RNA: mir-606 microRNA precursor family
RNA sequence: UGUAUCCUUGGUUUUUAGUAGUUUUACUAUGAUGAGGUGUGCCAUCCACCCCAUCAUAGUAAACUACUAAAAAUCAAAGAUACA
Numbered sequence: 001u002g003u004a005u006c007c008u009u010g011g012u013u014u015u016u017a018g019u020a021g022u023u024u025u026a027c028u029a030u031g032a033u034g035a036g037g038u039g040u041g042c043c044a045u046c047c048a049c050c051c052c053a054u055c056a057u058a059g060u061a062a063a064c065u066a067c068u069a070a071a072a073a074u075c076a077a078a079g080a081u082a083c084a
Stems, first nucleotide, its partner, number of pairs: 001084006008077017026060009036050004